[Rfam]
RNA sequence: AACCUCCUCCGACGUGACACAACAUCCAGCAGCGGUGUUGUGCGACCUGCAGUGUCAGUCGUUGGAGGUU
Numbered sequence: 001a002a003c004c005u006c007c008u009c010c011g012a013c014g015u016g017a018c019a020c021a022a023c024a025u026c027c028a029g030c031a032g033c034g035g036u037g038u039u040g041u042g043c044g045a046c047c048u049g050c051a052g053u054g055u056c057a058g059u060c061g062u063u064g065g066a067g068g069u070u
Stems, first nucleotide, its partner, number of pairs: 001070007010061004021039006044056003

Shown here is a 70-nucleotide RNA from Microdochium trichocladiopsis, a member of the family "bZIP non canonical Hac1/Xbp1 intron". The match comes from Rfam's covariance-model search (53 bits). The family has 112 seed sequences and 1,325 matches in Rfam 15.1.